Notes:
Rfam assigns this 171-nucleotide RNA from Macrococcoides bohemicum to the family "Lysine riboswitch aptamer". The organism belongs to Macrococcoides, within Bacteria. The base pairs follow the family's consensus structure, which is taken from published work. Riboswitches are metabolite binding domains within certain messenger RNAs that serve as precision sensors for their corresponding targets.
[Rfam]
RNA sequence: CGUUGAGGUAGAGGUUGCACUGUUUAUGAGUAGAUGAUGGAUAUGUCAUACACAUAAACGAAGUUUAUCGAAAGGAAGCAGUGCCGAAGGAAUAAUGUGUAUGAACAUUAUAUCCUGGGCUAACAUUGAACAAGUGUUAGACUGUCACAUCUGUGAUGCGCUACUUAAUUU
Dot-bracket structure: .....((((((.....(((((((((.......((((((........................).)))))......)))))))))...(((((((((((......))))))).))))((.((((((((.....)))))))).)).((((....))))....)))))).....